Notes: The record is a 163-nucleotide sequence from Amphiprion ocellaris, which matches "U1 spliceosomal RNA" in Rfam. Taxonomically the source falls in Amphiprion (Eukaryota, Chordata, Euacanthomorphacea, Percomorphaceae).
RNA sequence: GUACUUACCUGGCAGGGGAGAUACCGCCGAUCAGCAAGAUUAGUUCACGGAGUCGAGCCCAGCCAUUGCACUCCGGCUAGCUGACACCUGCGAAUUCCCCAAAUGUGGGAAUCUCGACUGCAUAAUUUCUGAUAGUGGGGGACUGCGUUCGCGCUCUCCCCUG
Numbered sequence: 001g002u003a004c005u006u007a008c009c010u011g012g013c014a015g016g017g018g019a020g021a022u023a024c025c026g027c028c029g030a031u032c033a034g035c036a037a038g039a040u041u042a043g044u045u046c047a048c049g050g051a052g053u054c055g056a057g058c059c060c061a062g063c064c065a066u067u068g069c070a071c072u073c074c075g076g077c078u079a080g081c082u083g084a085c086a087c088c089u090g091c092g093a094a095u096u097c098c099c100c101a102a103a104u105g106u107g108g109g110a111a112u113c114u115c116g117a118c119u120g121c122a123u124a125a126u127u128u129c130u131g132a133u134a135g136u137g138g139g140g141g142a143c144u145g146c147g148u149u150c151g152c153g154c155u156c157u158c159c160c161c162u163g
Stems, first nucleotide, its partner, number of pairs: 012121004018048001020046002024043001026041001050089001052087002055085001057082001059080001061078004091116003094112003098108002137162006145154003